[Rfam]
RNA sequence: AGCUGAACAAGCCAACCUCCGGGUGACCGGGGGAACGGAAAGCCUACGGGACUAAGUAGAUUAGUCGGCCGGGUUGCCGGA
Numbered sequence: 001a002g003c004u005g006a007a008c009a010a011g012c013c014a015a016c017c018u019c020c021g022g023g024u025g026a027c028c029g030g031g032g033g034a035a036c037g038g039a040a041a042g043c044c045u046a047c048g049g050g051a052c053u054a055a056g057u058a059g060a061u062u063a064g065u066c067g068g069c070c071g072g073g074u075u076g077c078c079g080g081a
Base pairs, nucleotide, nucleotide: 012038013037017032018031019030020029021028022027041075042074043073044072047071048070049069050066051065052064
A member of the RNA family "c-di-GMP-I riboswitch aptamer" from Geomesophilobacter sediminis, 81 nucleotides long. The base pairs follow the family's consensus structure, which is taken from published work. NCBI's taxonomy places the organism under Bacteria, Pseudomonadati, Desulfuromonadia, Geobacteraceae, Geomesophilobacter.